[Rfam]
Shown here is a 128-nucleotide RNA from Castor canadensis, a member of the family "Small nucleolar RNA SNORA40". Lineage of the source: Eukaryota > Chordata > Eutheria > Rodentia > Castor. The base pairs follow the family's consensus structure, which was predicted with RNAalifold.
RNA sequence: UGUGUGUGUGUGUGUAUUUGCUUAACUUGUGGACAAAGACUAACAGAUAGGUGCAAAAAAUCAAUCCUCUUUUGCAAACCAAAACUCAUUGUGCAGUAUGAGUUUUGAUACAUAUGAAAAGGAAUAUG
Numbered sequence: 001u002g003u004g005u006g007u008g009u010g011u012g013u014g015u016a017u018u019u020g021c022u023u024a025a026c027u028u029g030u031g032g033a034c035a036a037a038g039a040c041u042a043a044c045a046g047a048u049a050g051g052u053g054c055a056a057a058a059a060a061u062c063a064a065u066c067c068u069c070u071u072u073u074g075c076a077a078a079c080c081a082a083a084a085c086u087c088a089u090u091g092u093g094c095a096g097u098a099u100g101a102g103u104u105u106u107g108a109u110a111c112a113u114a115u116g117a118a119a120a121g122g123a124a125u126a127u128g
Stems, first nucleotide, its partner, number of pairs: 001055005007049003011045001014040002017037004026031001064125002067122002070119005080107010
The snoRNA ACA 40 belongs to the H/ACA family of snoRNAs and guides the pseudouridylation of 28S rRNA subunit at position U4565. NB This family has a high threshold value to exclude a large number of closely related sequences that do not appear to have conserved H and ACA boxes, and may be pseudogenes. The literature on the family includes a 1997 paper in J Mol Biol by Ofengand and Bakin, "Mapping to nucleotide resolution of pseudouridine residues in large subunit ribosomal RNAs from representative eukaryotes, prokaryotes, archaebacteria, mitochondria and chloroplasts". The family has 28 seed sequences and 2,550 matches in Rfam 15.1. The family's RNA type in Rfam is H/ACA-box small nucleolar RNA. Gene Ontology terms of the family: RNA processing and nucleolus.